Source information:
The family of this 150-nucleotide RNA from Salmonella enterica is "Salmonella enterica sRNA STnc361". It is one of the family's seed sequences. It is annotated as a small RNA.
RNA sequence: UUUGACUUAAGGAACAUCUUAUUAUCACAAGCGAACAACGUUAAUUUGAAUAUUAAUUUAUAAGAAGAGUACGCCUGGCGCGCCACAAAGGAAAUAUCUGUCUCCCAUCUGGUAUGUUACAAAAUAUAAAUUGGCACACCAUGUUAAAAA
Dot-bracket structure: ((((((...(((....((..((((.(.............).))))..))................(((.....(((((....))....))).....)))........)))(((.(((((............))))).)))..))))))..

The base pairs follow the family's consensus structure, which was predicted with RNAalifold.